[Rfam]
RNA sequence: AUAAUUUUAGGUGAUGGAGUUCGCCAUUAAUUGCGUAAGGCAUUUCUAAAUAAAUAACAAAAAUACUAACUUGUUAUUUAUUUAGAGAUGUCUAAUGCUAAUGACUCCUACAAAACA
Number, nucleotide and partner (000 for none) at each position: 001a000002u000003a000004a000005u000006u000007u000008u000009a000010g025011g024012u023013g022014a000015u000016g108017g107018a106019g105020u104021u103022c013023g012024c011025c010026a000027u000028u000029a000030a000031u000032u000033g098034c097035g096036u000037a000038a000039g000040g000041c000042a000043u000044u000045u000046c000047u000048a000049a000050a000051u000052a000053a000054a000055u000056a000057a000058c000059a000060a000061a000062a000063a000064u000065a000066c000067u000068a000069a000070c000071u000072u000073g000074u000075u000076a000077u000078u000079u000080a000081u000082u000083u000084a000085g000086a000087g000088a000089u000090g000091u000092c000093u000094a000095a000096u035097g034098c033099u000100a000101a000102u000103g021104a020105c019106u018107c017108c016109u000110a000111c000112a000113a000114a000115a000116c000117a000

Shown here is a 117-nucleotide RNA sequence from Clostridium gasigenes, a member of the family "Fluoride riboswitch aptamer (crcB RNA motif)". Gene Ontology terms of the family: response to fluoride and positive regulation of gene expression. Taxonomically the source falls in Clostridium (Bacteria, Bacillati, Bacillota, Eubacteriales).